This 89-nucleotide RNA sequence from Leptobrachium leishanense belongs to the Rfam family "Small nucleolar SNORD12/SNORD106". The family's consensus secondary structure was predicted with RNAalifold. The match comes from Rfam's covariance-model search (71 bits). The family's RNA type in Rfam is C/D-box small nucleolar RNA. For this family Rfam cites "RNomics: an experimental approach that identifies 201 candidates for novel, small, non-messenger RNAs in mouse" (Huttenhofer et al., EMBO J, 2001).
[Rfam]
RNA sequence: GCUGAUGUGUGUGAUGACCUUCUUUCCCCGUCAGAUCGACCCUGGUGACAUGUAAUGCUAUAAAAGCCAGUUUCGUCUGAUCCAUCAGC
Numbered sequence: 001g002c003u004g005a006u007g008u009g010u011g012u013g014a015u016g017a018c019c020u021u022c023u024u025u026c027c028c029c030g031u032c033a034g035a036u037c038g039a040c041c042c043u044g045g046u047g048a049c050a051u052g053u054a055a056u057g058c059u060a061u062a063a064a065a066g067c068c069a070g071u072u073u074c075g076u077c078u079g080a081u082c083c084a085u086c087a088g089c
Stems, first nucleotide, its partner, number of pairs: 001089007009081001